The family of this 118-nucleotide sequence from Pantoea alhagi is "tp2".
The family's consensus secondary structure was predicted with RNAalifold.
RNA sequence: GGUAUUCCUUAUCUGUGUCUAAUUCGUUGAAUUGUCUGGAGCCUGUCUCCCUGCAUUCUGAUUCAGUCCAAAAUGCAAGGAGACAGGCCCGUCGUUAGUUGCCGCGUAUCCCUUCGUU
Numbered sequence: 001g002g003u004a005u006u007c008c009u010u011a012u013c014u015g016u017g018u019c020u021a022a023u024u025c026g027u028u029g030a031a032u033u034g035u036c037u038g039g040a041g042c043c044u045g046u047c048u049c050c051c052u053g054c055a056u057u058c059u060g061a062u063u064c065a066g067u068c069c070a071a072a073a074u075g076c077a078a079g080g081a082g083a084c085a086g087g088c089c090c091g092u093c094g095u096u097a098g099u100u101g102c103c104g105c106g107u108a109u110c111c112c113u114u115c116g117u118u
Base pairs, nucleotide, nucleotide: 001103002102003101004100025094026093039090041088042087043086044085045084046083047082050079052077053076054075056073057072059070060069